[Rfam]
RNA sequence: CUUUCUGAUGAUGAUUGAUCUAAAUACUUUCGUUCUUCUGAUGUGCUCUUUCAUAGUACUGUGCGGAGGAAAUUUGGAGGCCUGAACUGAGGAAAU
Numbered sequence: 001c002u003u004u005c006u007g008a009u010g011a012u013g014a015u016u017g018a019u020c021u022a023a024a025u026a027c028u029u030u031c032g033u034u035c036u037u038c039u040g041a042u043g044u045g046c047u048c049u050u051u052c053a054u055a056g057u058a059c060u061g062u063g064c065g066g067a068g069g070a071a072a073u074u075u076g077g078a079g080g081c082c083u084g085a086a087c088u089g090a091g092g093a094a095a096u
Base pairs, nucleotide, nucleotide: 003094004093005092006091

Description:
Rfam assigns this 96-nucleotide sequence from Hordeum vulgare to the family "Small nucleolar RNA Z159/U59". Taxonomically the source falls in Hordeum vulgare (Eukaryota, Streptophytina, Magnoliopsida, Mesangiospermae). It is annotated as a C/D-box small nucleolar RNA. The family has 10 seed sequences and 1,401 matches in Rfam 15.1.